The record is a 127-nucleotide sequence from Streptococcus gallolyticus, which matches "Streptococcus sRNA SSRC34" in Rfam. Rfam's curators write: It is based on computationally predicted coordinates (RNAz). For this family Rfam cites "Novel Regulatory Small RNAs in Streptococcus pyogenes" (Tesorero et al., PLoS One, 2013).

RNA sequence: UGAAAACGUUUUACAAUAAUAUCGUUCUUAAAUUUCCUUGAAACGGAAAAGAAUUGCCAAGUUCGCUUGGAAGGAGAUUAUUCUUUUUUGUUUCAACGAAAAAUAUUUAAAAGGAGGAAGAACAAGA
Numbered sequence: 001u002g003a004a005a006a007c008g009u010u011u012u013a014c015a016a017u018a019a020u021a022u023c024g025u026u027c028u029u030a031a032a033u034u035u036c037c038u039u040g041a042a043a044c045g046g047a048a049a050a051g052a053a054u055u056g057c058c059a060a061g062u063u064c065g066c067u068u069g070g071a072a073g074g075a076g077a078u079u080a081u082u083c084u085u086u087u088u089u090g091u092u093u094c095a096a097c098g099a100a101a102a103a104u105a106u107u108u109a110a111a112a113g114g115a116g117g118a119a120g121a122a123c124a125a126g127a
Stems, first nucleotide, its partner, number of pairs: 006025003010021001012019001026121004033101004038096002041093014057070004